[Rfam]
RNA: Small nucleolar RNA R44/J54/Z268 family
RNA sequence: GUUGCAAAUGAUGAUAAAACUAGACAGGGACAUCAGAAACUCUUCGGAGUACAUUUGUGUUGAUUUGUCUUAAGAUGGGAAUCUCUUUGAUGCACU
Numbered sequence: 001g002u003u004g005c006a007a008a009u010g011a012u013g014a015u016a017a018a019a020c021u022a023g024a025c026a027g028g029g030a031c032a033u034c035a036g037a038a039a040c041u042c043u044u045c046g047g048a049g050u051a052c053a054u055u056u057g058u059g060u061u062g063a064u065u066u067g068u069c070u071u072a073a074g075a076u077g078g079g080a081a082u083c084u085c086u087u088u089g090a091u092g093c094a095c096u
Stems, first nucleotide, its partner, number of pairs: 003094004